[Rfam]
RNA sequence: AAUUCCGGCUAGGGGUGCCGCAAGGCUGAGAGAGAGCAAUCUCAACCCUUUGAACCUGAUAUGGGUAAUUCCAUCGUAGGGAAGCUGCCUUUGACCUGU
Numbered sequence: 001a002a003u004u005c006c007g008g009c010u011a012g013g014g015g016u017g018c019c020g021c022a023a024g025g026c027u028g029a030g031a032g033a034g035a036g037c038a039a040u041c042u043c044a045a046c047c048c049u050u051u052g053a054a055c056c057u058g059a060u061a062u063g064g065g066u067a068a069u070u071c072c073a074u075c076g077u078a079g080g081g082a083a084g085c086u087g088c089c090u091u092u093g094a095c096c097u098g099u
Base pairs, nucleotide, nucleotide: 006087007086008085009084010083011049012048013047014046017026018025019024033042034041035040055080056079057078058077061074062073063072064071
Rfam assigns this 99-nucleotide RNA sequence from Desulfofundulus thermobenzoicus to the family "TPP riboswitch aptamer (THI element)". The family's consensus secondary structure is taken from published work. The source organism's lineage runs through Bacteria, Clostridia, Eubacteriales, Peptococcaceae and Desulfofundulus.